This 232-nucleotide part of an RNA from Algibacter luteus belongs to the Rfam family "Bacterial large subunit ribosomal RNA". It scores 2735 bits against the family's covariance model.
RNA sequence: GAGUUACCGUUGCUAGCAAGGUUAAGCACUUCAGGUGCGGAUCCGUAGCGAAAGCGAGUCUGAAUAGGGCGCUUUAGUUAGUAGUGGUAGACGCGAAACCGUGUGAUCUACCCAUGGGCAGGUUGAAGCAGUAGUAACAUACUGUGGAGGACCGAACCGGUUGACGUUGAAAAGUCUUCGGAUGACCUGUGGGUAGGGGUGAAAGGCCAAUCAAACUCGGAAAUAGCUCGUA
Numbered sequence: 001g002a003g004u005u006a007c008c009g010u011u012g013c014u015a016g017c018a019a020g021g022u023u024a025a026g027c028a029c030u031u032c033a034g035g036u037g038c039g040g041a042u043c044c045g046u047a048g049c050g051a052a053a054g055c056g057a058g059u060c061u062g063a064a065u066a067g068g069g070c071g072c073u074u075u076a077g078u079u080a081g082u083a084g085u086g087g088u089a090g091a092c093g094c095g096a097a098a099c100c101g102u103g104u105g106a107u108c109u110a111c112c113c114a115u116g117g118g119c120a121g122g123u124u125g126a127a128g129c130a131g132u133a134g135u136a137a138c139a140u141a142c143u144g145u146g147g148a149g150g151a152c153c154g155a156a157c158c159g160g161u162u163g164a165c166g167u168u169g170a171a172a173a174g175u176c177u178u179c180g181g182a183u184g185a186c187c188u189g190u191g192g193g194u195a196g197g198g199g200u201g202a203a204a205g206g207c208c209a210a211u212c213a214a215a216c217u218c219g220g221a222a223a224u225a226g227c228u229c230g231u232a
Stems, first nucleotide, its partner, number of pairs: 005089013020044002023041001026038003048055002058070004092230002095227001099220003103216002108196011119184001121153004128145006157181003163176003198208003